Background: The family of this 77-nucleotide RNA from Crocodylus porosus is "Mammalian CPEB3 ribozyme". It scores 40 bits against the family's covariance model. Rfam's curators write: The mammalian CPEB3 ribozyme is a self cleaving RNA located in the second intron of the CPEB3 gene which belongs to a family of genes regulating messenger RNA polyadenylation. This ribozyme is highly conserved and found only in mammals. The CPEB3 ribozyme is structurally and biochemically related to the human hepatitis delta virus (HDV) ribozyme and the HDV ribozyme is proposed to have arisen from the human transcriptome. There is currently only one other known self cleaving ribozyme in mammals, the CoTC motif. The organism belongs to Crocodylus, within Eukaryota.

RNA sequence: GGUUGAAAGUUCAAGGCCAUAGCAGAAGCUGUCAUGGUGUGGCUCUGUCAGGUUCCAACAAAUCUGAGACUUCUGCU
Numbered sequence: 001g002g003u004u005g006a007a008a009g010u011u012c013a014a015g016g017c018c019a020u021a022g023c024a025g026a027a028g029c030u031g032u033c034a035u036g037g038u039g040u041g042g043c044u045c046u047g048u049c050a051g052g053u054u055c056c057a058a059c060a061a062a063u064c065u066g067a068g069a070c071u072u073c074u075g076c077u
Stems, first nucleotide, its partner, number of pairs: 014044001016043003021077007028040002049066006